[Rfam]
RNA sequence: UUUCCAUAAUGAACAUAAAAUGACAAGCACAUGCCUGAACUCAAGUGAUAGCUUAACUACUGAGAAA
Number, nucleotide and partner (000 for none) at each position: 001u067002u066003u065004c064005c000006a000007u000008a000009a000010u000011g000012a000013a000014c000015a000016u000017a000018a000019a000020a000021u000022g000023a000024c000025a000026a000027g000028c000029a000030c000031a000032u000033g000034c000035c000036u000037g000038a000039a000040c000041u000042c000043a000044a000045g000046u000047g000048a000049u000050a000051g000052c000053u000054u000055a000056a000057c000058u000059a000060c000061u000062g000063a000064g004065a003066a002067a001
Shown here is a 67-nucleotide RNA from Sus scrofa, a member of the family "Small nucleolar RNA SNORD27". A search with the family's covariance model found it, with a score of 58 bits. NCBI's taxonomy places the organism under Eukaryota, Metazoa, Deuterostomia, Euteleostomi, Sus. The family's RNA type in Rfam is C/D-box small nucleolar RNA.